[Rfam]
RNA sequence: GAGGUUCCGGUUCACGCCACAAGUGGCGACCCGGCGACC
Numbered sequence: 001g002a003g004g005u006u007c008c009g010g011u012u013c014a015c016g017c018c019a020c021a022a023g024u025g026g027c028g029a030c031c032c033g034g035c036g037a038c039c
Stems, first nucleotide, its partner, number of pairs: 003039003007034004015028005
RNA: L31-Actinobacteria ribosomal protein leader